mir-362 microRNA precursor family: a 62-nucleotide sequence from Pongo pygmaeus. It is one of the family's seed sequences.

RNA sequence: GAAUCCUUGGAACCUAGGUGUGAGUGCUAUUUCAGUGCAACACACCUAUUCAAGGAUUCAAA
Number, nucleotide and partner (000 for none) at each position: 001g059002a058003a057004u056005c055006c054007u053008u052009g051010g050011a049012a000013c000014c000015u048016a047017g046018g045019u044020g043021u042022g041023a000024g000025u039026g038027c037028u000029a000030u000031u000032u000033c000034a000035g000036u000037g027038c026039a025040a000041c022042a021043c020044a019045c018046c017047u016048a015049u011050u010051c009052a008053a007054g006055g005056a004057u003058u002059c001060a000061a000062a000
Pairs were carried over by alignment from the consensus structure, which was predicted with RNAalifold. Gene Ontology terms of the family: RISC complex and miRNA-mediated post-transcriptional gene silencing.